Rfam assigns this 114-nucleotide RNA from Schistosoma japonicum to the family "Potassium channel RNA editing signal". The organism belongs to Schistosoma, within Eukaryota. A search with the family's covariance model found it, with a score of 90 bits.
[Rfam]
RNA sequence: GUAGGUUAUGGUGAUAUGCGACCAGUAACAAUGUGGGGUAAACUUGUUGGAUCAUUAUGUGCUAUUGCCGGUGUUCUAACUAUUGCUCUACCAGUACCUGUGAUUGUUUCAAAU
Numbered sequence: 001g002u003a004g005g006u007u008a009u010g011g012u013g014a015u016a017u018g019c020g021a022c023c024a025g026u027a028a029c030a031a032u033g034u035g036g037g038g039u040a041a042a043c044u045u046g047u048u049g050g051a052u053c054a055u056u057a058u059g060u061g062c063u064a065u066u067g068c069c070g071g072u073g074u075u076c077u078a079a080c081u082a083u084u085g086c087u088c089u090a091c092c093a094g095u096a097c098c099u100g101u102g103a104u105u106g107u108u109u110c111a112a113a114u
Stems, first nucleotide, its partner, number of pairs: 001114002005110001008107004014101003018097001020095001037077002040074001049063002